Shown here is a 579-nucleotide part of an RNA from Sulfodiicoccus acidiphilus, a member of the family "Archaeal small subunit ribosomal RNA". Its Rfam clan is "SSU clan". A search with the family's covariance model found it, with a score of 1452 bits. The source organism's lineage runs through Archaea, Thermoproteati, Thermoproteota, Thermoprotei and Sulfodiicoccus. The family has 86 seed sequences and 709 matches in Rfam 15.1. A reference for the family is Yusupov et al. (2001), "Crystal structure of the ribosome at 5.5 A resolution", Science.

[Rfam]
RNA sequence: UGGCGGGGGAGCACCACAAGGGGUGGAACCUGCGGCUCAAUUGGAGUCAACACCUGGAAUCUCACCGGGGGAGACCGCAGAAUGACGGCCAGGCUGACGACCUUGCCAGACUCGCGGAGAGGAGGCGCAUGGCCGUCGCCAGCUCGUGUUGUGAAAUGUCCGGUUAAGUCCGGCAACGAGCGAGACCCCCACCCUUAGUUGCUACUCUGGUCUCCGGAUCGGAGGCACACUAAGGGGACUGCCGGCGUUUAAGCCGGAGGAAGGAGGGGGCCACGGCAGGUCAGCAUGCCCCGAAACUCCCGGGCCGCACGCGGGUUACAAUGGCAGGGACAGCGGGAAUCCAAACCCGAAAGGGGGAGGCAAUCCCUUAAACCCUGCCUCAGUUGGGAUCGAGGGCUGAAACUCGCCCUCGUGAACGAGGAAUCCCUAGUAACCGCACGUCAACAACGUGCGGUGAAUACGUCCCUGCUCCUUGCACACACCGCCCGUCGCUCCACCCGAGCGGGGGAGGGGUGAGGCUCCCUGCCUCGUGUGGGGAGUCGAACUUCUUUCCUGCAAGGGGGAGAAGUCGUAACAAGG
Number, nucleotide and partner (000 for none) at each position: 001u479002g478003g476004c475005g474006g000007g473008g472009g471010a470011g469012c468013a467014c000015c000016a463017c462018a000019a000020g427021g426022g425023g424024u423025g319026g000027a317028a316029c315030c314031u313032g312033c311034g310035g308036c307037u000038c000039a000040a000041u056042u000043g054044g053045a000046g000047u000048c000049a000050a000051c000052a000053c044054c043055u000056g041057g000058a000059a000060u000061c000062u000063c000064a000065c303066c302067g301068g300069g299070g298071g297072a000073g000074a000075c117076c116077g115078c114079a112080g111081a000082a000083u000084g000085a000086c000087g107088g106089c105090c000091a103092g102093g101094c000095u000096g000097a000098c000099g000100a000101c093102c092103u091104u000105g089106c088107c087108a000109g000110a000111c080112u079113c000114g078115c077116g076117g075118a000119g000120a000121g292122g291123a000124g290125g289126c288127g287128c000129a000130u286131g285132g281133c280134c279135g277136u276137c275138g274139c000140c000141a000142g181143c180144u179145c178146g177147u176148g157149u156150u155151g000152u000153g000154a000155a150156a149157u148158g000159u000160c173161c172162g171163g170164u000165u000166a000167a000168g000169u000170c163171c162172g161173g160174c000175a000176a147177c146178g145179a144180g143181c142182g000183a000184g000185a000186c000187c269188c268189c267190c266191a000192c236193c235194c234195u233196u232197a231198g230199u000200u000201g000202c225203u224204a000205c000206u223207c222208u221209g220210g219211u218212c217213u000214c000215c000216g000217g212218a211219u210220c209221g208222g207223a206224g203225g202226c000227a000228c000229a000230c198231u197232a196233a195234g194235g193236g192237g000238a000239c260240u259241g000242c257243c256244g255245g254246c253247g000248u000249u000250u000251a000252a000253g246254c245255c244256g243257g242258a000259g240260g239261a000262a000263g000264g000265a000266g190267g189268g188269g187270g000271c000272c000273a000274c138275g137276g136277c135278a000279g134280g133281u132282c000283a000284g000285c131286a130287u127288g126289c125290c124291c122292c121293g000294a000295a000296a000297c071298u070299c069300c068301c067302g066303g065304g000305c000306c000307g036308c035309a000310c034311g033312c032313g031314g030315g029316u028317u027318a000319c025320a000321a000322u000323g379324g378325c377326a376327g375328g374329g373330a000331c000332a000333g000334c000335g367336g366337g365338a000339a000340u000341c360342c359343a000344a000345a000346c355347c354348c353349g000350a000351a000352a000353g348354g347355g346356g000357g000358a000359g342360g341361c000362a000363a000364u000365c337366c336367c335368u000369u000370a000371a000372a000373c329374c328375c327376u326377g325378c324379c323380u000381c000382a000383g000384u000385u000386g417387g000388g000389a000390u000391c412392g411393a410394g409395g408396g407397c406398u000399g000400a000401a000402a000403c000404u000405c000406g397407c396408c395409c394410u393411c392412g391413u000414g000415a000416a000417c386418g000419a000420g000421g000422a000423a024424u023425c022426c021427c020428u000429a000430g000431u000432a000433a455434c454435c453436g452437c451438a450439c449440g448441u000442c000443a000444a000445c000446a000447a000448c440449g439450u438451g437452c436453g435454g434455u433456g000457a000458a000459u000460a000461c000462g017463u016464c000465c000466c000467u013468g012469c011470u010471c009472c008473u007474u005475g004476c003477a000478c002479a001480c000481a000482c578483c000484g575485c000486c000487c571488g570489u000490c568491g000492c565493u564494c563495c562496a000497c561498c560499c559500g000501a000502g556503c555504g554505g553506g552507g551508g550509a549510g548511g547512g546513g545514u544515g000516a000517g541518g540519c539520u538521c537522c536523c535524u534525g533526c532527c000528u000529c000530g000531u000532g526533u525534g524535g523536g522537g521538a520539g519540u518541c517542g000543a000544a514545c513546u512547u511548c510549u509550u508551u507552c506553c505554u504555g503556c502557a000558a000559g499560g498561g497562g495563g494564a493565g492566a000567a000568g490569u000570c488571g487572u000573a000574a000575c484576a000577a000578g482579g000